[Rfam]
Rfam assigns this 78-nucleotide sequence from Schistosoma mansoni to the family "mir-3492 microRNA precursor family". Lineage of the source: Eukaryota > Metazoa > Protostomia > Strigeidida > Schistosoma. Rfam 15.1 lists 21,496 matches to the family in 13 species. It scores 59 bits against the family's covariance model. The base pairs follow the family's consensus structure, which was predicted with RNAalifold.

RNA sequence: AGCUUUUUGAAUCCGUGCUGAGAUUUCGUCAAACACCAACCCAUUAUGGCUGACCAGACUUUCAAGAUAAGUGAAGUU
Numbered sequence: 001a002g003c004u005u006u007u008u009g010a011a012u013c014c015g016u017g018c019u020g021a022g023a024u025u026u027c028g029u030c031a032a033a034c035a036c037c038a039a040c041c042c043a044u045u046a047u048g049g050c051u052g053a054c055c056a057g058a059c060u061u062u063c064a065a066g067a068u069a070a071g072u073g074a075a076g077u078u
Base pairs, nucleotide, nucleotide: 002077003076004075005074006073008071011068012067013066016064017063020061021060022059024058025057026056028054029053030052